The record is a 137-nucleotide RNA sequence from Desulfotomaculum copahuensis, which matches "FMN riboswitch aptamer (RFN element)" in Rfam. It scores 111 bits against the family's covariance model. Pairs were carried over by alignment from the consensus structure, which is taken from published work.
RNA sequence: AACAACCUUCGGGGACGGGUGCAAUUCCCUACCGGCGGUAAGGCGUCAAAGAGGUGCCGAGCCCGCGAGCCCGGUAACGGGUUGACCUGGUGCGAAGCCAGGGCCGACAGUAAAAGUCUGGAUGGGAGAAGGUGGCG
Numbered sequence: 001a002a003c004a005a006c007c008u009u010c011g012g013g014g015a016c017g018g019g020u021g022c023a024a025u026u027c028c029c030u031a032c033c034g035g036c037g038g039u040a041a042g043g044c045g046u047c048a049a050a051g052a053g054g055u056g057c058c059g060a061g062c063c064c065g066c067g068a069g070c071c072c073g074g075u076a077a078c079g080g081g082u083u084g085a086c087c088u089g090g091u092g093c094g095a096a097g098c099c100a101g102g103g104c105c106g107a108c109a110g111u112a113a114a115a116g117u118c119u120g121g122a123u124g125g126g127a128g129a130a131g132g133u134g135g136c137g
Stems, first nucleotide, its partner, number of pairs: 003135001005133006017029003031117002033106002035066004061104002069082003086102005108120003